[Rfam]
RNA sequence: UUUGACAGAUUAGCUGCCUAAACAGGCAAUGGCUGGUGAUUUAAACGUCACCGGCCU
Numbered sequence: 001u002u003u004g005a006c007a008g009a010u011u012a013g014c015u016g017c018c019u020a021a022a023c024a025g026g027c028a029a030u031g032g033c034u035g036g037u038g039a040u041u042u043a044a045a046c047g048u049c050a051c052c053g054g055c056c057u
Stems, first nucleotide, its partner, number of pairs: 015028004031056010

Rfam assigns this 57-nucleotide RNA from Thalassotalea algicola to the family "Pseudomonas sRNA P26". By type it is a non-coding RNA gene. The literature on the family includes a 2006 paper in Nucleic Acids Res by Livny et al., "Identification of 17 Pseudomonas aeruginosa sRNAs and prediction of sRNA-encoding genes in 10 diverse pathogens using the bioinformatic tool sRNAPredict2". This small RNA (sRNA) was computationally identified in the genome of the opportunistic pathogen Pseudomonas aeruginosa and its expression verified by northern blot analysis. P26 is conserved across many Gammaproteobacteria species and appears to be consistently located between the DNA directed RNA polymerase (beta subunit) and 50S ribosomal protein L7/L12 genes. The base pairs follow the family's consensus structure, which was predicted with RNAalifold.